Rfam assigns this 85-nucleotide RNA sequence to the family "c-di-GMP-II-GAG riboswitch aptamer". For this family Rfam cites "Bioinformatic analysis of riboswitch structures uncovers variant classes with altered ligand specificity" (Weinberg et al., Proc Natl Acad Sci U S A, 2017). It is one of the family's seed sequences. The family's consensus secondary structure is taken from published work.
[Rfam]
RNA sequence: CCGACGGCGGGAGGCUCUGACACGCUGUCCUUACCCCGGCCGCCGGGAUCGCGCCGAGCCACUGGCGAGACCGGCCCGCAGGCAU
Numbered sequence: 001c002c003g004a005c006g007g008c009g010g011g012a013g014g015c016u017c018u019g020a021c022a023c024g025c026u027g028u029c030c031u032u033a034c035c036c037c038g039g040c041c042g043c044c045g046g047g048a049u050c051g052c053g054c055c056g057a058g059c060c061a062c063u064g065g066c067g068a069g070a071c072c073g074g075c076c077c078g079c080a081g082g083c084a085u
Base pairs, nucleotide, nucleotide: 003083005081007079008078009077010076011075013060014059015058023053024052025051027049028048029047038072039071041067042066043065044064